Record summary
The record is a 135-nucleotide RNA sequence from Parnassius apollo, which matches "U4atac minor spliceosomal RNA" in Rfam. By type it is a spliceosomal small nuclear RNA. U4atac is an essential component of the minor U12-type spliceosome complex which is required for removal of the rarer class of eukaryotic introns (AT-AC, U12-type). On this family, see Lorkovic et al., RNA 2005: "Evolutionary conservation of minor U12-type spliceosome between plants and humans". The organism belongs to Parnassius, within Eukaryota. Rfam links the family to the GO terms pre-mRNA 5'-splice site binding, U4atac snRNP and spliceosomal tri-snRNP complex assembly.
RNA sequence: GACUUCCUUGUCUCGGGGAGCAUAGUGCGCAGUGAUCGUAAAGUGAGAGCACUGAUGCUGACACCCACAAGUUAUCAAGUAUAACUGACCGCGUCCGGCUGCCGUUCAGGGAGUCCGAACGCAAUUUUUGAAAGG
Numbered sequence: 001g002a003c004u005u006c007c008u009u010g011u012c013u014c015g016g017g018g019a020g021c022a023u024a025g026u027g028c029g030c031a032g033u034g035a036u037c038g039u040a041a042a043g044u045g046a047g048a049g050c051a052c053u054g055a056u057g058c059u060g061a062c063a064c065c066c067a068c069a070a071g072u073u074a075u076c077a078a079g080u081a082u083a084a085c086u087g088a089c090c091g092c093g094u095c096c097g098g099c100u101g102c103c104g105u106u107c108a109g110g111g112a113g114u115c116c117g118a119a120c121g122c123a124a125u126u127u128u129u130g131a132a133a134g135g
Base pairs, nucleotide, nucleotide: 005019006018007017008016009015020058021057022056023055024053025052026051027050028049030047037043091122092121093120094119096117099113100112102110103109